The record is a 108-nucleotide RNA sequence from Brevundimonas goettingensis, which matches "terC RNA" in Rfam. It scores 44 bits against the family's covariance model. NCBI's taxonomy places the organism under Bacteria, Pseudomonadati, Caulobacterales, Caulobacteraceae, Brevundimonas. The family's RNA type in Rfam is cis-regulatory element.
RNA sequence: GACGCGGGACGGGCCCCUCUGGCGUCGUCUUCCGGAUCCAUCACGCCGACGGCUGUCCCCCCAGUGCGAGGCGUGUUCCGGAAGUCGGCGCGAUGUCGGACCGCAUCG
Numbered sequence: 001g002a003c004g005c006g007g008g009a010c011g012g013g014c015c016c017c018u019c020u021g022g023c024g025u026c027g028u029c030u031u032c033c034g035g036a037u038c039c040a041u042c043a044c045g046c047c048g049a050c051g052g053c054u055g056u057c058c059c060c061c062c063a064g065u066g067c068g069a070g071g072c073g074u075g076u077u078c079c080g081g082a083a084g085u086c087g088g089c090g091c092g093a094u095g096u097c098g099g100a101c102c103g104c105a106u107c108g
Base pairs, nucleotide, nucleotide: 006102007101010098011097012096022091023090024089025088026087027086029084030083031082032081033080034079035078036077